[Rfam]
RNA sequence: CGUUUCCUUCGGGGCUGGGUGAAACUCCCGACCGGCGGUGAUGAAGCGAUGGCUUCUUAGUCCGUGACCCGAAUCUAUUUAUAGAGGCGGUGGACCUGGUGAAAAUCCGGGACCGACAGUGAAAGUCUGGAUGGGAGAAGGAACGA
Numbered sequence: 001c002g003u004u005u006c007c008u009u010c011g012g013g014g015c016u017g018g019g020u021g022a023a024a025c026u027c028c029c030g031a032c033c034g035g036c037g038g039u040g041a042u043g044a045a046g047c048g049a050u051g052g053c054u055u056c057u058u059a060g061u062c063c064g065u066g067a068c069c070c071g072a073a074u075c076u077a078u079u080u081a082u083a084g085a086g087g088c089g090g091u092g093g094a095c096c097u098g099g100u101g102a103a104a105a106u107c108c109g110g111g112a113c114c115g116a117c118a119g120u121g122a123a124a125g126u127c128u129g130g131a132u133g134g135g136a137g138a139a140g141g142a143a144c145g146a
Stems, first nucleotide, its partner, number of pairs: 004143007017029003031126002033115002035065004060113002069090002095111005117129003

The record is a 146-nucleotide sequence from Halalkalibacter nanhaiisediminis, which matches "FMN riboswitch aptamer (RFN element)" in Rfam. Pairs were carried over by alignment from the consensus structure, which is taken from published work. Gene Ontology term of the family: FMN binding. The organism belongs to Halalkalibacter, within Bacteria.